Rfam assigns this 77-nucleotide RNA sequence from Alligator mississippiensis to the family "Mammalian CPEB3 ribozyme". Rfam describes the family as follows. The mammalian CPEB3 ribozyme is a self cleaving RNA located in the second intron of the CPEB3 gene which belongs to a family of genes regulating messenger RNA polyadenylation.
RNA sequence: AGUUGCAAUUUUGAGACCAUAGCAGAAGUGUUCAAUGUGUGGCCCUGUCAGAGUCCAAUGAAUCUGUGAAUUCUGCU
Numbered sequence: 001a002g003u004u005g006c007a008a009u010u011u012u013g014a015g016a017c018c019a020u021a022g023c024a025g026a027a028g029u030g031u032u033c034a035a036u037g038u039g040u041g042g043c044c045c046u047g048u049c050a051g052a053g054u055c056c057a058a059u060g061a062a063u064c065u066g067u068g069a070a071u072u073c074u075g076c077u
Stems, first nucleotide, its partner, number of pairs: 013045001015044001017042002021077007028040003049066004054061002
The match comes from Rfam's covariance-model search (47 bits).